Rfam assigns this 483-nucleotide part of an RNA from Chondrus crispus to the family "Eukaryotic large subunit ribosomal RNA".
RNA sequence: CUGGAAAGUUCUCUCAGGAUAGCGGGCCGACAAGUUGUUUUGUGCGGUAAAGCGAAUGAUUAGCGCAUUUCGGGGGCGUUUAGCCUUUGGGCGAUUCUCAAACUUUCAAUGCGCAAGGGUGCCGCUGCUUAAUUGAGCGGUACCGGUAAAAACGUCGGCCCUGUGGGCCACUUUUGGUAAGCAGAACUGGCGAUACGGGAUGAACCGUAAGCAUGGUUAAGGCGCCAAACUGCCCGCUUAUAGACCCCACAAAAGGUGUUGAUUCAUCGAGACAGCAGGACGGUGGCCAUGGAAGUCGGAAUCCGCCAAGGAGUGUGUAACAACUCACCUGCCGAAUGAAUUAGCCCUGAAAAUGGAUGGCGCUGAAGCGGGCGGCCGACACCAUGCCGUCUGGACAAGAAAUGUUUUCAGAUGAGUAGGAGGGCGUGGCGGCCGUGUCGAAGCGCGCUUGCAGAAGCGUGUGGAACGGCCGCUAGUGCAGAU
Numbered sequence: 001c002u003g004g005a006a007a008g009u010u011c012u013c014u015c016a017g018g019a020u021a022g023c024g025g026g027c028c029g030a031c032a033a034g035u036u037g038u039u040u041u042g043u044g045c046g047g048u049a050a051a052g053c054g055a056a057u058g059a060u061u062a063g064c065g066c067a068u069u070u071c072g073g074g075g076g077c078g079u080u081u082a083g084c085c086u087u088u089g090g091g092c093g094a095u096u097c098u099c100a101a102a103c104u105u106u107c108a109a110u111g112c113g114c115a116a117g118g119g120u121g122c123c124g125c126u127g128c129u130u131a132a133u134u135g136a137g138c139g140g141u142a143c144c145g146g147u148a149a150a151a152a153c154g155u156c157g158g159c160c161c162u163g164u165g166g167g168c169c170a171c172u173u174u175u176g177g178u179a180a181g182c183a184g185a186a187c188u189g190g191c192g193a194u195a196c197g198g199g200a201u202g203a204a205c206c207g208u209a210a211g212c213a214u215g216g217u218u219a220a221g222g223c224g225c226c227a228a229a230c231u232g233c234c235c236g237c238u239u240a241u242a243g244a245c246c247c248c249a250c251a252a253a254a255g256g257u258g259u260u261g262a263u264u265c266a267u268c269g270a271g272a273c274a275g276c277a278g279g280a281c282g283g284u285g286g287c288c289a290u291g292g293a294a295g296u297c298g299g300a301a302u303c304c305g306c307c308a309a310g311g312a313g314u315g316u317g318u319a320a321c322a323a324c325u326c327a328c329c330u331g332c333c334g335a336a337u338g339a340a341u342u343a344g345c346c347c348u349g350a351a352a353a354u355g356g357a358u359g360g361c362g363c364u365g366a367a368g369c370g371g372g373c374g375g376c377c378g379a380c381a382c383c384a385u386g387c388c389g390u391c392u393g394g395a396c397a398a399g400a401a402a403u404g405u406u407u408u409c410a411g412a413u414g415a416g417u418a419g420g421a422g423g424g425c426g427u428g429g430c431g432g433c434c435g436u437g438u439c440g441a442a443g444c445g446c447g448c449u450u451g452c453a454g455a456a457g458c459g460u461g462u463g464g465a466a467c468g469g470c471c472g473c474u475a476g477u478g479c480a481g482a483u
Stems, first nucleotide, its partner, number of pairs: 001423002010019003024161007040116006050106001051104002057100003062095001064093003070090006077083001118144009167191004172186005196207003211387005217381001221377003230374001232373001235370003254348003258345010275332005281305003287299002306310001311326001315324002388414008425478001427475010443462002448457003

Source information: The match comes from Rfam's covariance-model search (2784 bits).